[Rfam]
RNA sequence: CCGCAUACCAGUAGACCUUAUCUGGUUCUUCUCAUAGCCAGAUGAGGGGGAUGGUACAUGCUACAAAAACCUUGGGCUGCUGUAGGUUAUGAUCAGCCUGGAUGUGGCUGGUUGAACUGCAAUACUCAGACAUAU
Numbered sequence: 001c002c003g004c005a006u007a008c009c010a011g012u013a014g015a016c017c018u019u020a021u022c023u024g025g026u027u028c029u030u031c032u033c034a035u036a037g038c039c040a041g042a043u044g045a046g047g048g049g050g051a052u053g054g055u056a057c058a059u060g061c062u063a064c065a066a067a068a069a070c071c072u073u074g075g076g077c078u079g080c081u082g083u084a085g086g087u088u089a090u091g092a093u094c095a096g097c098c099u100g101g102a103u104g105u106g107g108c109u110g111g112u113u114g115a116a117c118u119g120c121a122a123u124a125c126u127c128a129g130a131c132a133u134a135u
Stems, first nucleotide, its partner, number of pairs: 003061004016047009073128004078124001081121003093111005
Notes:
The family of this 135-nucleotide sequence from Falcunculus frontatus is "Small nucleolar RNA SNORA58". The family is grouped with related families in Rfam's "SNORA44 clan". Taxonomically the source falls in Falcunculus (Eukaryota, Vertebrata, Sarcopterygii, Amniota). Its family is annotated with RNA processing and nucleolus in the Gene Ontology. The literature on the family includes a 2001 paper in EMBO J by Huttenhofer et al., "RNomics: an experimental approach that identifies 201 candidates for novel, small, non-messenger RNAs in mouse".